Overview: Rfam assigns this 152-nucleotide RNA sequence from Phaeovulum vinaykumarii to the family "Ruegeria cis2 sRNA". It scores 71 bits against the family's covariance model. Rfam classes the family as a small RNA. A reference for the family is Rivers et al. (2016), "Experimental Identification of Small Non-Coding RNAs in the Model Marine Bacterium Ruegeria pomeroyi DSS-3", Front Microbiol.
[Rfam]
RNA sequence: GAUGAAUAAUGCGGGUUGUAGUUGAUGAAGGUAUAGCCGCGCGCCUGGUCGAUGGUGUGAAAGAGCGGGUUCCACGAGAACAGCACCAAGAUCUUGUGCGGCAGCGCAUUGGCCACGAACAUCUUGCCCGAAGCGACCAUGUUGGCCCGCGC
Numbered sequence: 001g002a003u004g005a006a007u008a009a010u011g012c013g014g015g016u017u018g019u020a021g022u023u024g025a026u027g028a029a030g031g032u033a034u035a036g037c038c039g040c041g042c043g044c045c046u047g048g049u050c051g052a053u054g055g056u057g058u059g060a061a062a063g064a065g066c067g068g069g070u071u072c073c074a075c076g077a078g079a080a081c082a083g084c085a086c087c088a089a090g091a092u093c094u095u096g097u098g099c100g101g102c103a104g105c106g107c108a109u110u111g112g113c114c115a116c117g118a119a120c121a122u123c124u125u126g127c128c129c130g131a132a133g134c135g136a137c138c139a140u141g142u143u144g145g146c147c148c149g150c151g152c
Stems, first nucleotide, its partner, number of pairs: 002034003007029001012024003036056004040051002063152001065150003069081004086145004091140002097133001099130003102126003106122001109118003